[Rfam]
RNA sequence: CCUUCCCGGAGGGAGAGCGGCCUGGGGCGGCGGUGCUGCGUGUGGGGCUGCGAUGUGCGUGGAAGGCGCGUGUGGGCUGAGUGAGUGGGCGCGCGAGUGCGGUGGGUCCACGUGGGGCGUGCAAGGCGAGCGUGUGUGCGCCGUCCCUGAGCCCCUCCCCCCGUCUACACCUUGAUCUUAUUUGAUCGGGUUGUGACCCAGCCCCGCCGGGCCGGCCCGAGAUGAAAAGCUCCCUCCUGCGAAGCCCCCUCCGCGGGGCGCUGUGCGGCGAGGCCCGCGGGCGGCGGCAGCACCGCGGCCCCGGCACUGGUCUGACGGGGCCCGGAGCUCAGAAGUGAUGAAUUGAUCAGAUAGACGAGGCCGGGCCCGUCCCGCGCCGCUGAUUAUCGAGGCGAUUCUGAUCUGA
Numbered sequence: 001c002c003u004u005c006c007c008g009g010a011g012g013g014a015g016a017g018c019g020g021c022c023u024g025g026g027g028c029g030g031c032g033g034u035g036c037u038g039c040g041u042g043u044g045g046g047g048c049u050g051c052g053a054u055g056u057g058c059g060u061g062g063a064a065g066g067c068g069c070g071u072g073u074g075g076g077c078u079g080a081g082u083g084a085g086u087g088g089g090c091g092c093g094c095g096a097g098u099g100c101g102g103u104g105g106g107u108c109c110a111c112g113u114g115g116g117g118c119g120u121g122c123a124a125g126g127c128g129a130g131c132g133u134g135u136g137u138g139c140g141c142c143g144u145c146c147c148u149g150a151g152c153c154c155c156u157c158c159c160c161c162c163g164u165c166u167a168c169a170c171c172u173u174g175a176u177c178u179u180a181u182u183u184g185a186u187c188g189g190g191u192u193g194u195g196a197c198c199c200a201g202c203c204c205c206g207c208c209g210g211g212c213c214g215g216c217c218c219g220a221g222a223u224g225a226a227a228a229g230c231u232c233c234c235u236c237c238u239g240c241g242a243a244g245c246c247c248c249c250u251c252c253g254c255g256g257g258g259c260g261c262u263g264u265g266c267g268g269c270g271a272g273g274c275c276c277g278c279g280g281g282c283g284g285c286g287g288c289a290g291c292a293c294c295g296c297g298g299c300c301c302c303g304g305c306a307c308u309g310g311u312c313u314g315a316c317g318g319g320g321c322c323c324g325g326a327g328c329u330c331a332g333a334a335g336u337g338a339u340g341a342a343u344u345g346a347u348c349a350g351a352u353a354g355a356c357g358a359g360g361c362c363g364g365g366c367c368c369g370u371c372c373c374g375c376g377c378c379g380c381u382g383a384u385u386a387u388c389g390a391g392g393c394g395a396u397u398c399u400g401a402u403c404u405g406a
Stems, first nucleotide, its partner, number of pairs: 052153001054151001056149001057071005089100004102139003107134001109132001111130001113128002181228003186220004191215003195212001197211003201207002261298002265296002268293001270291001273288003276284001307325004311320003330405004340398006359378003364373002